[Rfam]
Shown here is a 96-nucleotide RNA from Capra hircus, a member of the family "Vault RNA".
The organism belongs to Capra, within Eukaryota.
On this family, see Stadler et al., Mol Biol Evol 2009: "Evolution of Vault RNAs".
Rfam describes the family as follows. This family of RNAs are found as part of the enigmatic vault ribonucleoprotein complex.
RNA sequence: GGUCUCAUAGCUCAGCAGUUCCUUCGACUGCAUCAUGAUUCAAUUAUCCUUUCAAGGGUGAUGAUUUGAGACCUGUGGGCACUCUCCAGUCCUUUC
Dot-bracket structure: ((.......((((.((((....(((((......................................)))))..)))))))).....)).........

It scores 41 bits against the family's covariance model. The family has 73 seed sequences and 2,873 matches in Rfam 15.1. The family's RNA type in Rfam is non-coding RNA gene.